[Rfam]
RNA sequence: CCCGGAGCGGUCACGUACGGGACCCGUCCACGCCCGCGCACUUGCGCGGCAGGAUGCAAGGGUCCGCGAUGCCCGGCCCGGUCGGAGGCUGGCCGAUG
Numbered sequence: 001c002c003c004g005g006a007g008c009g010g011u012c013a014c015g016u017a018c019g020g021g022a023c024c025c026g027u028c029c030a031c032g033c034c035c036g037c038g039c040a041c042u043u044g045c046g047c048g049g050c051a052g053g054a055u056g057c058a059a060g061g062g063u064c065c066g067c068g069a070u071g072c073c074c075g076g077c078c079c080g081g082u083c084g085g086a087g088g089c090u091g092g093c094c095g096a097u098g
Stems, first nucleotide, its partner, number of pairs: 014068003020065006026055003034049006
RNA: malK-III RNA